[Rfam]
RNA sequence: GCUGCAUCAGGACGGAAAGACCCCGUGGACCUUUACUGUAGCUUGAUGUUGAGUUUUGGUUCCGAUUGUGUAGGAUAGGUGGGAGCCUAUGAACGGGUGGCGCUAGCUGCCCGGGAGGCGUCCUUGAAAUACCACCCUGUCGGUGCCGGAGCUCUAACCAUGGUCCGUGAAUCCGGAUCGGGAACAGCGUCAGGUGGGCAGUUUGACUGGGGCGGUCGCCUCCUAAAGAGUAACGGAGGCGCCCAAAGGUUCCCUCAGACUGGUUGGCAAUCAGUCGUUAGAGUGCAAUGGCAAAAGGGAGCUUGACUGCGAGACCCACAAGUCGAGCAGGUGCGAAAGCAGGGCAUAGUGAUCCGGCGGUAGCGUGUGGAAGCGCCGUCGCUCAACGGAUAAAAGGUACCCCGGGGAUAACAGGCUCAUCUUGCCCAAGAGUCCAUAUCGACGGCAAGGUUUGGCACCUCGAUGUCGGCUCGUCGCAUCCUGGGGCUGAAGUAGGUCCCAAGGGUUGGGCUGUUCGCCCAUUAAAGCGGUACGCGAGCUGGGUUUAGAACGUCGUGAGACAGUUCGGUCCCUAUCCGAUGCAGCCGUA
Numbered sequence: 001g002c003u004g005c006a007u008c009a010g011g012a013c014g015g016a017a018a019g020a021c022c023c024c025g026u027g028g029a030c031c032u033u034u035a036c037u038g039u040a041g042c043u044u045g046a047u048g049u050u051g052a053g054u055u056u057u058g059g060u061u062c063c064g065a066u067u068g069u070g071u072a073g074g075a076u077a078g079g080u081g082g083g084a085g086c087c088u089a090u091g092a093a094c095g096g097g098u099g100g101c102g103c104u105a106g107c108u109g110c111c112c113g114g115g116a117g118g119c120g121u122c123c124u125u126g127a128a129a130u131a132c133c134a135c136c137c138u139g140u141c142g143g144u145g146c147c148g149g150a151g152c153u154c155u156a157a158c159c160a161u162g163g164u165c166c167g168u169g170a171a172u173c174c175g176g177a178u179c180g181g182g183a184a185c186a187g188c189g190u191c192a193g194g195u196g197g198g199c200a201g202u203u204u205g206a207c208u209g210g211g212g213c214g215g216u217c218g219c220c221u222c223c224u225a226a227a228g229a230g231u232a233a234c235g236g237a238g239g240c241g242c243c244c245a246a247a248g249g250u251u252c253c254c255u256c257a258g259a260c261u262g263g264u265u266g267g268c269a270a271u272c273a274g275u276c277g278u279u280a281g282a283g284u285g286c287a288a289u290g291g292c293a294a295a296a297g298g299g300a301g302c303u304u305g306a307c308u309g310c311g312a313g314a315c316c317c318a319c320a321a322g323u324c325g326a327g328c329a330g331g332u333g334c335g336a337a338a339g340c341a342g343g344g345c346a347u348a349g350u351g352a353u354c355c356g357g358c359g360g361u362a363g364c365g366u367g368u369g370g371a372a373g374c375g376c377c378g379u380c381g382c383u384c385a386a387c388g389g390a391u392a393a394a395a396g397g398u399a400c401c402c403c404g405g406g407g408a409u410a411a412c413a414g415g416c417u418c419a420u421c422u423u424g425c426c427c428a429a430g431a432g433u434c435c436a437u438a439u440c441g442a443c444g445g446c447a448a449g450g451u452u453u454g455g456c457a458c459c460u461c462g463a464u465g466u467c468g469g470c471u472c473g474u475c476g477c478a479u480c481c482u483g484g485g486g487c488u489g490a491a492g493u494a495g496g497u498c499c500c501a502a503g504g505g506u507u508g509g510g511c512u513g514u515u516c517g518c519c520c521a522u523u524a525a526a527g528c529g530g531u532a533c534g535c536g537a538g539c540u541g542g543g544u545u546u547a548g549a550a551c552g553u554c555g556u557g558a559g560a561c562a563g564u565u566c567g568g569u570c571c572c573u574a575u576c577c578g579a580u581g582c583a584g585c586c587g588u589a
Stems, first nucleotide, its partner, number of pairs: 001585008010577003014572002022406004027402002029398005035202004042194007051154010062143005068137001078136005085119003094113008158182002162179006205217004218240006241387001243344002249302006255282002258276006283292002307330004313324003332341003355381007363374002415456003419453001420450007430440002467542001468540004472534001473531005480505002483500006507521005548566004552561003

The family of this 589-nucleotide part of an RNA from Ferrimicrobium acidiphilum is "Bacterial large subunit ribosomal RNA". Its family is annotated with ribosome and structural constituent of ribosome in the Gene Ontology.